[Rfam]
Rfam assigns this 68-nucleotide RNA sequence from Nocardia cerradoensis to the family "L31-Actinobacteria ribosomal protein leader". The base pairs follow the family's consensus structure, which is taken from published work. The organism belongs to Nocardia cerradoensis, within Bacteria. On this family, see Eckert and Weinberg, BMC Microbiol 2020: "Discovery of 20 novel ribosomal leader candidates in bacteria and archaea". The sequence is in the family's curated seed alignment.
RNA sequence: UCGGUUCCGGUUCACGUCCAUGACGGCAGCACGGCAGAUACAGCCGUGUGCUCGGGCGACCCGGGGCC
Numbered sequence: 001u002c003g004g005u006u007c008c009g010g011u012u013c014a015c016g017u018c019c020a021u022g023a024c025g026g027c028a029g030c031a032c033g034g035c036a037g038a039u040a041c042a043g044c045c046g047u048g049u050g051c052u053c054g055g056g057c058g059a060c061c062c063g064g065g066g067c068c
Stems, first nucleotide, its partner, number of pairs: 003068003007064004015058005